[Rfam]
RNA sequence: GCGCAGGUUUGGUCCAGUGGUUACUUCGUACCUGCAGGUUAUAGUAUCUUCUCUACGGGGAAGACAACCACGGACGCUGUCCUGCGUUUUU
Numbered sequence: 001g002c003g004c005a006g007g008u009u010u011g012g013u014c015c016a017g018u019g020g021u022u023a024c025u026u027c028g029u030a031c032c033u034g035c036a037g038g039u040u041a042u043a044g045u046a047u048c049u050u051c052u053c054u055a056c057g058g059g060g061a062a063g064a065c066a067a068c069c070a071c072g073g074a075c076g077c078u079g080u081c082c083u084g085c086g087u088u089u090u091u
Base pairs, nucleotide, nucleotide: 002086003085004084005083006082007081012075013074014073015072017071018070019069020068026064027063029061

Shown here is a 91-nucleotide RNA sequence from Araneus ventricosus, a member of the family "Vault RNA". The literature on the family includes a 2009 paper in Mol Biol Evol by Stadler et al., "Evolution of Vault RNAs". About the family: This family of RNAs are found as part of the enigmatic vault ribonucleoprotein complex. The complex consists of a major vault protein (MVP), two minor vault proteins (VPARP and TEP1), and several small untranslated RNA molecules. It has been suggested that the vault complex is involved in drug resistance. The source organism's lineage runs through Eukaryota, Bilateria, Orbiculariae, Araneoidea and Araneus.